The family of this 335-nucleotide sequence from Saitoella complicata is "A. fumigatus sRNA Afu_309".
On this family, see Jochl et al., Nucleic Acids Res 2008: "Small ncRNA transcriptome analysis from Aspergillus fumigatus suggests a novel mechanism for regulation of protein synthesis".
The match comes from Rfam's covariance-model search (54 bits).
Lineage of the source: Eukaryota > Opisthokonta > Saitoellomycetes > Saitoellaceae > Saitoella complicata.
Rfam 15.1 lists 663 matches to the family in 646 species.
[Rfam]
RNA sequence: CCUCAACAACCCACAAUGGGUUUGUGCCCGUCUCGCCGCGCCGUCCUCCUCGGAGGUUCGGUCGUAGCUUGAGAUGGGUACACCGGCUAGAUGGAUGCAUCACCUUCUCACCCUGCGCUUGAGCACUUCCUUGUGUCGUGGUCGCGCAGACGAGAGGGAACUUCUGUAUGGUGUUGAUCCCGUCGACAAACCCUCGAUUGACGGAUCCCAUUCCAUGUUGAUGUUCGCCUUCGGGCUGAGCUCCAUGGGUGGGUGACGGGGCGUUAUAUUCCUACUCCUUCCGUGCGUGCUCCCUGGAGUUUUGCGGUUGGGAAAAACCAUAUCGGCCACAAACC
Dot-bracket structure: .................((((((((((((((.((((.((((((.((((....))))..))).))).)..))).)))))).......(.(..(((...(((...................................................................)))...)))......).)))))))))..........(.(.......((((..((.((((((......)).)))))))))).......).)..((((.(((........((((.(((......(((....))).....)))..))))......))).).))).......